[Rfam]
RNA sequence: UCAUUCCUACUUUCGGUUAUCUAGCUUUAUGAUGGAGAGUUUACACUCAUACAGCUAGAUAACCAAAGACAGGAACAG
Numbered sequence: 001u002c003a004u005u006c007c008u009a010c011u012u013u014c015g016g017u018u019a020u021c022u023a024g025c026u027u028u029a030u031g032a033u034g035g036a037g038a039g040u041u042u043a044c045a046c047u048c049a050u051a052c053a054g055c056u057a058g059a060u061a062a063c064c065a066a067a068g069a070c071a072g073g074a075a076c077a078g
Base pairs, nucleotide, nucleotide: 001078004075005074007072008071011068012067013066015064016063017062018061019060020059021058022057023056024055025054026053028051029050030049031048032047
The family of this 78-nucleotide RNA sequence from Poecilia reticulata is "mir-9/mir-79 microRNA precursor family". Rfam 15.1 lists 5,647 matches to the family in 934 species. Pairs were carried over by alignment from the consensus structure, which was predicted with RNAalifold. Its family is annotated with RISC complex and miRNA-mediated post-transcriptional gene silencing in the Gene Ontology.